[Rfam]
RNA sequence: AGAGACAAGUAGAAGCACCCGCUUCUCACCUGAUCGACGCGUAAGCAGUUGGCAGGUCACUAUUCCUUUGAUUUAUUAGGAGACGUGUGGGUGCAGUAUGUGCCGACACUUUUUUUAUUUG
Numbered sequence: 001a002g003a004g005a006c007a008a009g010u011a012g013a014a015g016c017a018c019c020c021g022c023u024u025c026u027c028a029c030c031u032g033a034u035c036g037a038c039g040c041g042u043a044a045g046c047a048g049u050u051g052g053c054a055g056g057u058c059a060c061u062a063u064u065c066c067u068u069u070g071a072u073u074u075a076u077u078a079g080g081a082g083a084c085g086u087g088u089g090g091g092u093g094c095a096g097u098a099u100g101u102g103c104c105g106a107c108a109c110u111u112u113u114u115u116u117a118u119u120u121g
Stems, first nucleotide, its partner, number of pairs: 011026006028057003036050003039046002086108003090104006

This 121-nucleotide RNA sequence from Halobacillus sp. BAB-2008 belongs to the Rfam family "Ribosomal protein L20 leader". Pairs were carried over by alignment from the consensus structure, which was predicted with CMfinder.